A member of the RNA family "IMES-5 RNA", 149 nucleotides long.
RNA sequence: UAUUUCGGAAAGAAUUGGACCUCGAGACCCAAAUCAGGAAGAAAAUGGACAGAAGAAGAAGGGUGAAAUAGUCAAUUUAUUGACAACUUGUGAGCUGAAAUGGGUAUCGGCCACACAGUGAGAAACCCGCACUGGACCCUUCAACUUCG
Numbered sequence: 001u002a003u004u005u006c007g008g009a010a011a012g013a014a015u016u017g018g019a020c021c022u023c024g025a026g027a028c029c030c031a032a033a034u035c036a037g038g039a040a041g042a043a044a045a046u047g048g049a050c051a052g053a054a055g056a057a058g059a060a061g062g063g064u065g066a067a068a069u070a071g072u073c074a075a076u077u078u079a080u081u082g083a084c085a086a087c088u089u090g091u092g093a094g095c096u097g098a099a100a101u102g103g104g105u106a107u108c109g110g111c112c113a114c115a116c117a118g119u120g121a122g123a124a125a126c127c128c129g130c131a132c133u134g135g136a137c138c139c140u141u142c143a144a145c146u147u148c149g
Stems, first nucleotide, its partner, number of pairs: 001047005014034002016031003052148004058142006072083004089115004094111005116134005
Rfam's curators put it in the seed alignment. Pairs were carried over by alignment from the consensus structure, which is taken from published work.